A member of the RNA family "U4 spliceosomal RNA" from Eremothecium gossypii, 156 nucleotides long. For this family Rfam cites "The uRNA database" (Zwieb, Nucleic Acids Res, 1997). It is annotated as a spliceosomal small nuclear RNA. U4 small nuclear RNA (U4 snRNA) is a component of the major U2-dependent spliceosome.

Nucleotides: 156
Base pairs, nucleotide, nucleotide: 020053021052022051023050024049026048027047028046034043035042036041088132089131090130092127093126094125095124096123097122098121146155148153
Number, partner (000 for none) and nucleotide at each position: 001000a002000u003000u004000c005000u006000u007000a008000u009000g010000c011000a012000c013000g014000g015000g016000a017000a018000a019000u020053a021052c022051g023050c024049a025000u026048a027047u028046c029000a030000g031000u032000g033000a034043g035042g036041a037000u038000u039000c040000g041036u042035c043034c044000g045000a046028g047027a048026u049024u050023g051022u052021g053020u054000u055000a056000u057000u058000g059000c060000u061000g062000g063000u064000a065000a066000a067000a068000u069000a070000a071000u072000a073000u074000a075000a076000a077000c078000c079000a080000u081000g082000a083000c084000c085000c086000g087000c088132u089131c090130c091000u092127c093126a094125u095124g096123g097122u098121c099000a100000u101000a102000g103000a104000u105000g106000u107000c108000c109000u110000a111000g112000u113000a114000c115000a116000u117000c118000g119000c120000g121098g122097a123096c124095u125094a126093u127092g128000u129000a130090g131089g132088g133000a134000a135000u136000u137000u138000u139000u140000g141000g142000a143000a144000u145000g146155a147000c148153a149000c150000a151000a152000u153148u154000a155146u156000a